[Rfam]
RNA sequence: AAUAUCCUUCGGGGUCGGGUGAAAGUCCCAACCGGCGGUGAUGAAGCAAUUCUAAGUCCGUGACCCGGUUGCGCAUGCAAACGGUGGAUCUAGUGUGAAUCUAGAACCGACAGUAUAGUCUGGAUGGGAGAAGGAUGAG
Numbered sequence: 001a002a003u004a005u006c007c008u009u010c011g012g013g014g015u016c017g018g019g020u021g022a023a024a025g026u027c028c029c030a031a032c033c034g035g036c037g038g039u040g041a042u043g044a045a046g047c048a049a050u051u052c053u054a055a056g057u058c059c060g061u062g063a064c065c066c067g068g069u070u071g072c073g074c075a076u077g078c079a080a081a082c083g084g085u086g087g088a089u090c091u092a093g094u095g096u097g098a099a100u101c102u103a104g105a106a107c108c109g110a111c112a113g114u115a116u117a118g119u120c121u122g123g124a125u126g127g128g129a130g131a132a133g134g135a136u137g138a139g
Stems, first nucleotide, its partner, number of pairs: 003137008017029003031119002033109002035061004056107002065084002089105005111122003
This 139-nucleotide sequence from Bacillus sp. 165 belongs to the Rfam family "FMN riboswitch aptamer (RFN element)".